[Rfam]
RNA sequence: AGCAAAAUGAUGAGGUCAGCAUGUCUGAAACUGAUGUGGAUAUCUUUUGUCUCAUAAGGUCUUCAAAGUUCUCUGAUUGCU
Numbered sequence: 001a002g003c004a005a006a007a008u009g010a011u012g013a014g015g016u017c018a019g020c021a022u023g024u025c026u027g028a029a030a031c032u033g034a035u036g037u038g039g040a041u042a043u044c045u046u047u048u049g050u051c052u053c054a055u056a057a058g059g060u061c062u063u064c065a066a067a068g069u070u071c072u073c074u075g076a077u078u079g080c081u
Stems, first nucleotide, its partner, number of pairs: 001081005